[Rfam]
RNA sequence: UAUUAGGUUGGUGCAAAAGUAAUUGCGGUUUUUGUUGUUACUUUUAACAGCAAAAACCGCAAUUACUUUUGCACCAAGUUAAUA
Numbered sequence: 001u002a003u004u005a006g007g008u009u010g011g012u013g014c015a016a017a018a019g020u021a022a023u024u025g026c027g028g029u030u031u032u033u034g035u036u037g038u039u040a041c042u043u044u045u046a047a048c049a050g051c052a053a054a055a056a057c058c059g060c061a062a063u064u065a066c067u068u069u070u071g072c073a074c075c076a077a078g079u080u081a082a083u084a
Stems, first nucleotide, its partner, number of pairs: 001084006008077033
Dot-bracket structure: ((((((.(((((((((((((((((((((((((((((((((....))))))))))))))))))))))))))))))))).))))))
The record is an 84-nucleotide sequence from Piliocolobus tephrosceles, which matches "mir-548 microRNA precursor family" in Rfam. For this family Rfam cites "Deep sequencing of the small RNA transcriptome of normal and malignant human B cells identifies hundreds of novel microRNAs" (Jima et al., Blood, 2010). Rfam 15.1 lists 3,009 matches to the family in 27 species. The match comes from Rfam's covariance-model search (92 bits). The source organism's lineage runs through Eukaryota, Metazoa, Deuterostomia, Eutheria and Piliocolobus.